Description
Shown here is a 52-nucleotide sequence from Equus asinus, a member of the family "mir-1302 microRNA precursor family".

RNA sequence: UUUUUAGUAUAAGUAUAUCCCAUGCAAUAUUUGAGAAAUAUUUACACUAAAC
Numbered sequence: 001u002u003u004u005u006a007g008u009a010u011a012a013g014u015a016u017a018u019c020c021c022a023u024g025c026a027a028u029a030u031u032u033g034a035g036a037a038a039u040a041u042u043u044a045c046a047c048u049a050a051a052c
Stems, first nucleotide, its partner, number of pairs: 006048003010044003014040003018036002021033001022031001
On this family, see Morin et al., Genome Res 2008: "Application of massively parallel sequencing to microRNA profiling and discovery in human embryonic stem cells".